Rfam assigns this 73-nucleotide sequence from Ruminococcaceae bacterium YRB3002 to the family "tRNA".
Lineage of the source: Bacteria > Bacillota > Clostridia > Eubacteriales > Oscillospiraceae.
The family's consensus secondary structure is taken from published work.
[Rfam]
RNA sequence: GCCUCUAUAGCUCAGUAGGUAGAGCGCAUCCAUGGUAAGGAUGAGGUCGCCGGUUCGAUCCCGGCUGGAGGCU
Numbered sequence: 001g002c003c004u005c006u007a008u009a010g011c012u013c014a015g016u017a018g019g020u021a022g023a024g025c026g027c028a029u030c031c032a033u034g035g036u037a038a039g040g041a042u043g044a045g046g047u048c049g050c051c052g053g054u055u056c057g058a059u060c061c062c063g064g065c066u067g068g069a070g071g072c073u
Stems, first nucleotide, its partner, number of pairs: 001072007010025004027043005049065005